[Rfam]
RNA: c-di-GMP-I riboswitch aptamer
Organism: Acholeplasma oculi
RNA sequence: AAAGAUUAGGGGCAAACUUAAGGGAACUUAAGGACGCAAAACUAAAGGGUCUAAGAAGACAGCCAGUUGCAUCG
Numbered sequence: 001a002a003a004g005a006u007u008a009g010g011g012g013c014a015a016a017c018u019u020a021a022g023g024g025a026a027c028u029u030a031a032g033g034a035c036g037c038a039a040a041a042c043u044a045a046a047g048g049g050u051c052u053a054a055g056a057a058g059a060c061a062g063c064c065a066g067u068u069g070c071a072u073c074g
Stems, first nucleotide, its partner, number of pairs: 012037002017032006040068004047064002049060003